[Rfam]
RNA sequence: GGUAGUAGGUCUACCGCAAUCGUUGUGCAAGCGAGGGUUGCAAACCACCUCUCGUUGCUUUGAAAGUAAUGGAUAGGUAUUGGGCGGAAAGAGGAAAAGGCUGUGAAAACAGUCAGGU
Numbered sequence: 001g002g003u004a005g006u007a008g009g010u011c012u013a014c015c016g017c018a019a020u021c022g023u024u025g026u027g028c029a030a031g032c033g034a035g036g037g038u039u040g041c042a043a044a045c046c047a048c049c050u051c052u053c054g055u056u057g058c059u060u061u062g063a064a065a066g067u068a069a070u071g072g073a074u075a076g077g078u079a080u081u082g083g084g085c086g087g088a089a090a091g092a093g094g095a096a097a098a099g100g101c102u103g104u105g106a107a108a109a110c111a112g113u114c115a116g117g118u
Base pairs, nucleotide, nucleotide: 001015002014003013004012005011016041017040018039019038020037021036023034024033025032026031046117048094049093050092051091052090053087054081057078058077059076061073064070099114100113101112102111103110104109

This 118-nucleotide RNA from Flavobacterium cheongpyeongense belongs to the Rfam family "Group II catalytic intron D1-D4-2". On this family, see Bonen and Vogel, Trends Genet 2001: "The ins and outs of group II introns".